[Rfam]
RNA: U4atac minor spliceosomal RNA
RNA sequence: ACCAUCCUUUUCUUGGGGUUGCGCUACUGUUCAAUGAACGUUUAGUGAGAACAGUACUGCUAACGCCAUAACAACACACUCGCACCAACUAAAGCUUAGCUUUACUUUGGUGCAAUUUUUGGAAAA
Numbered sequence: 001a002c003c004a005u006c007c008u009u010u011u012c013u014u015g016g017g018g019u020u021g022c023g024c025u026a027c028u029g030u031u032c033a034a035u036g037a038a039c040g041u042u043u044a045g046u047g048a049g050a051a052c053a054g055u056a057c058u059g060c061u062a063a064c065g066c067c068a069u070a071a072c073a074a075c076a077c078a079c080u081c082g083c084a085c086c087a088a089c090u091a092a093a094g095c096u097u098a099g100c101u102u103u104a105c106u107u108u109g110g111u112g113c114a115a116u117u118u119u120u121g122g123a124a125a126a
Base pairs, nucleotide, nucleotide: 006018007017008016009015021060022059023058026055027054028053029052030051031050032049038046039045082113083112084111085110086109087108090104091103092102093101094100095099